[Rfam]
RNA sequence: GUAGGAUAUGGAGACAUGUGCCCCAUAACCCUGGCGGGCAAGAUCGUGGGCACCUUGUGUGCCAUAGCAGGUGUGUUGACAAUUGCUUUGCCUGUUCCUGUCAUCGUUUCCAAC
Dot-bracket structure: ((.((..((((.((((.(.((...............((((........(((.........)))..........))))................)).).)))).))))..)).))